[Rfam]
RNA sequence: CUGUGUUGUGCGUCAACAGUGAUUGAACCAACACAU
Numbered sequence: 001c002u003g004u005g006u007u008g009u010g011c012g013u014c015a016a017c018a019g020u021g022a023u024u025g026a027a028c029c030a031a032c033a034c035a036u
Stems, first nucleotide, its partner, number of pairs: 002035007010028001013026004017021001

Shown here is a 36-nucleotide RNA sequence from Oppiella nova, a member of the family "Iron response element I". For this family Rfam cites "Identification of the iron-responsive element for the translational regulation of human ferritin mRNA" (Hentze et al., Science, 1987). The base pairs follow the family's consensus structure, which is taken from published work. By type it is a cis-regulatory element.